The family of this 92-nucleotide sequence from Streptomyces alboniger is "ZMP/ZTP riboswitch aptamer (pfl RNA motif)". On this family, see Jones and Ferre-D'Amare, Nat Struct Mol Biol 2015: "Recognition of the bacterial alarmone ZMP through long-distance association of two RNA subdomains". The family's consensus secondary structure is taken from published work. A search with the family's covariance model found it, with a score of 50 bits.
RNA sequence: CAACAGCACGGCGACUGGCGCACGGGGAACCGACCCCGAGGAAGCCGUGCGAAGGCAGAACCUUCGAGGUGCCGAACGCCUGGGCACCCCGG
Numbered sequence: 001c002a003a004c005a006g007c008a009c010g011g012c013g014a015c016u017g018g019c020g021c022a023c024g025g026g027g028a029a030c031c032g033a034c035c036c037c038g039a040g041g042a043a044g045c046c047g048u049g050c051g052a053a054g055g056c057a058g059a060a061c062c063u064u065c066g067a068g069g070u071g072c073c074g075a076a077c078g079c080c081u082g083g084g085c086a087c088c089c090c091g092g
Stems, first nucleotide, its partner, number of pairs: 006050007015041002017080004024037004069087005